[Rfam]
RNA sequence: UGUCACACGCCGGGGAGCUCGGUACACCGAGCUGAGAGGGCGGAUGGGACACGUGCCCGAGCCGCCGACCCGCGAACCUGAACUGGGUCAUGCCAGCGGAGGGAGCGUGGGAGCCCGCUCG
Numbered sequence: 001u002g003u004c005a006c007a008c009g010c011c012g013g014g015g016a017g018c019u020c021g022g023u024a025c026a027c028c029g030a031g032c033u034g035a036g037a038g039g040g041c042g043g044a045u046g047g048g049a050c051a052c053g054u055g056c057c058c059g060a061g062c063c064g065c066c067g068a069c070c071c072g073c074g075a076a077c078c079u080g081a082a083c084u085g086g087g088u089c090a091u092g093c094c095a096g097c098g099g100a101g102g103g104a105g106c107g108u109g110g111g112a113g114c115c116c117g118c119u120c121g
Stems, first nucleotide, its partner, number of pairs: 006109005011072004017032005039066005077102003083096004
This 121-nucleotide sequence from Sanguibacter sp. HDW7 belongs to the Rfam family "TPP riboswitch aptamer (THI element)". The family's consensus secondary structure is taken from published work. Lineage of the source: Bacteria > Bacillati > Actinomycetota > Sanguibacteraceae > Sanguibacter. The match comes from Rfam's covariance-model search (62 bits).